Shown here is an 82-nucleotide RNA from Streptosporangium roseum, a member of the family "Actinobacteria sRNA Ms_AS-4". Rfam's curators put it in the seed alignment. The base pairs follow the family's consensus structure. NCBI's taxonomy places the organism under Bacteria, Bacillati, Streptosporangiaceae, Streptosporangium, Streptosporangium roseum.
RNA sequence: UUUGGCGUUGACGUAGCGGCCUUCGGCGUCGCCGAACUCUGCGAGCACCCGGGCGCCGAGGACCAGUCCCAGCCCCGGCUGC
Number, nucleotide and partner (000 for none) at each position: 001u000002u000003u000004g000005g000006c000007g000008u044009u043010g042011a000012c000013g039014u000015a000016g000017c000018g038019g037020c000021c000022u036023u035024c034025g033026g032027c031028g000029u000030c000031g027032c026033c025034g024035a023036a022037c019038u018039c013040u000041g000042c010043g009044a008045g000046c000047a000048c000049c000050c000051g000052g000053g000054c000055g079056c078057c077058g000059a000060g075061g074062a000063c072064c000065a000066g000067u000068c000069c000070c000071a000072g063073c000074c061075c060076c000077g057078g056079c055080u000081g000082c000

Record summary: The family has 9 seed sequences and 207 matches in Rfam 15.1. Rfam classes the family as a small RNA.